[Rfam]
RNA sequence: UGACUCUUCCUGAGAGUCAACCUAGCCAACUGACGUUGUUUUUGGAAUUAUUUCAAUAAAACAAUGACGCCAACCGAACCUAUUCUCGGUUGGCUUUUUUUUG
Numbered sequence: 001u002g003a004c005u006c007u008u009c010c011u012g013a014g015a016g017u018c019a020a021c022c023u024a025g026c027c028a029a030c031u032g033a034c035g036u037u038g039u040u041u042u043u044g045g046a047a048u049u050a051u052u053u054c055a056a057u058a059a060a061a062c063a064a065u066g067a068c069g070c071c072a073a074c075c076g077a078a079c080c081u082a083u084u085c086u087c088g089g090u091u092g093g094c095u096u097u098u099u100u101u102u103g
Base pairs, nucleotide, nucleotide: 001019002018003017004016005015006014036067037066038065039064042056043055044054045053046052047051070093071092072091073090074089075088076087077086
Description:
Shown here is a 103-nucleotide RNA sequence from Photobacterium gaetbulicola, a member of the family "Qrr RNA". On this family, see Lenz et al., Cell 2004: "The Small RNA Chaperone Hfq and Multiple Small RNAs Control Quorum Sensing in Vibrio harveyi and Vibrio cholerae". Rfam 15.1 lists 148 matches to the family in 70 species.